[Rfam]
RNA sequence: UACCAUUAAAGGCAAACCUGUCGAAAGAUAGGGACGCAAAGCCACGGGUCCAAAGCAGGAGCACUGCAAUGACAGCCGGGUUACCGAA
Numbered sequence: 001u002a003c004c005a006u007u008a009a010a011g012g013c014a015a016a017c018c019u020g021u022c023g024a025a026a027g028a029u030a031g032g033g034a035c036g037c038a039a040a041g042c043c044a045c046g047g048g049u050c051c052a053a054a055g056c057a058g059g060a061g062c063a064c065u066g067c068a069a070u071g072a073c074a075g076c077c078g079g080g081u082u083a084c085c086g087a088a
Stems, first nucleotide, its partner, number of pairs: 012037002017032006040082004045078003048073003055067004